[Rfam]
RNA sequence: ACCCCCUGGCAAUGGGCAAAAAGACCUGAUUUGUGGUGCUGUUCUUAUAUCAGUCAGGGGGAAAGCAGACGUACAGUCCUUUGUUCAUCCUAGCUUGAUGCCUGGGUUGGUGGCCAAAGCUAUUUCAUGCCCGGGGCACAUAA
Numbered sequence: 001a002c003c004c005c006c007u008g009g010c011a012a013u014g015g016g017c018a019a020a021a022a023g024a025c026c027u028g029a030u031u032u033g034u035g036g037u038g039c040u041g042u043u044c045u046u047a048u049a050u051c052a053g054u055c056a057g058g059g060g061g062a063a064a065g066c067a068g069a070c071g072u073a074c075a076g077u078c079c080u081u082u083g084u085u086c087a088u089c090c091u092a093g094c095u096u097g098a099u100g101c102c103u104g105g106g107u108u109g110g111u112g113g114c115c116a117a118a119g120c121u122a123u124u125u126c127a128u129g130c131c132c133g134g135g136g137c138a139c140a141u142a143a
Base pairs, nucleotide, nucleotide: 002061003060004059005058006057007056008055013052014051015050019046020045023040024037025036026035082138083137084136085135086134097131099129103127104126105125108122109121111119